Shown here is a 139-nucleotide RNA sequence from Saimiri boliviensis, a member of the family "Small nucleolar RNA SNORA8". The family's RNA type in Rfam is H/ACA-box small nucleolar RNA. Clan: SNORA8 clan. ACA8 is a member of the H/ACA class of snoRNA that guide the sites of modification of uridines to pseudouridines.
RNA sequence: CGCACUGCAUGGUAUCUCCACUCAGCAGCGUUUUCCUGCUAGGGUGUUCAGAGGUCUGUGCUAUAGAAGUUCAGUAUCUGGCAUCAUUGGUUUUCUUGGCUUUGUGCUUGUUUAACCUGGUAUUUCUAUUGAUACAGUA
Numbered sequence: 001c002g003c004a005c006u007g008c009a010u011g012g013u014a015u016c017u018c019c020a021c022u023c024a025g026c027a028g029c030g031u032u033u034u035c036c037u038g039c040u041a042g043g044g045u046g047u048u049c050a051g052a053g054g055u056c057u058g059u060g061c062u063a064u065a066g067a068a069g070u071u072c073a074g075u076a077u078c079u080g081g082c083a084u085c086a087u088u089g090g091u092u093u094u095c096u097u098g099g100c101u102u103u104g105u106g107c108u109u110g111u112u113u114a115a116c117c118u119g120g121u122a123u124u125u126c127u128a129u130u131g132a133u134a135c136a137g138u139a
Stems, first nucleotide, its partner, number of pairs: 002061004007056001014055004019046005024040005064128007071120004080108005